Annotation
The family of this 196-nucleotide sequence from Fukomys damarensis is "U2 spliceosomal RNA". The family's consensus secondary structure is taken from published work. The source organism's lineage runs through Eukaryota, Sarcopterygii, Eutheria, Euarchontoglires and Fukomys. The family's RNA type in Rfam is spliceosomal small nuclear RNA. It scores 51 bits against the family's covariance model. U2 is a small nuclear RNA (snRNA) component of the spliceosome (involved in pre-mRNA splicing). Complementary binding between U2 snRNA (in an area lying towards the 5' end but 3' to hairpin I) and the branchpoint sequence (BPS) of the intron results the bulging out of an unpaired adenosine, on the BPS, which initiates a nucleophilic attack at the intronic 5' splice site, thus starting the first of two transesterification reactions that mediate splicing.
RNA sequence: AUCGCUUCUCGGCCUUUUGGCUAAGAUCAAGUGUAAAAUUGUUCUACAUAUACAUUUUUUGUAUUGUUGAUAUAAUUUUAUGAAUAUACUGUUAUUGACUUAUCUAUCAAGCAAAUUUAUUCUUAGACAGCAGCAAAGUACCAGUGAUAAAUACAUGGAGAAGAAGAAAACUAUAUCUUCUUACAUCUGUUCUUAU
Numbered sequence: 001a002u003c004g005c006u007u008c009u010c011g012g013c014c015u016u017u018u019g020g021c022u023a024a025g026a027u028c029a030a031g032u033g034u035a036a037a038a039u040u041g042u043u044c045u046a047c048a049u050a051u052a053c054a055u056u057u058u059u060u061g062u063a064u065u066g067u068u069g070a071u072a073u074a075a076u077u078u079u080a081u082g083a084a085u086a087u088a089c090u091g092u093u094a095u096u097g098a099c100u101u102a103u104c105u106a107u108c109a110a111g112c113a114a115a116u117u118u119a120u121u122c123u124u125a126g127a128c129a130g131c132a133g134c135a136a137a138g139u140a141c142c143a144g145u146g147a148u149a150a151a152u153a154c155a156u157g158g159a160g161a162a163g164a165a166g167a168a169a170a171c172u173a174u175a176u177c178u179u180c181u182u183a184c185a186u187c188u189g190u191u192c193u194u195a196u
Stems, first nucleotide, its partner, number of pairs: 007026003011022004046057001048055002059075007105149005152189002155186003159181006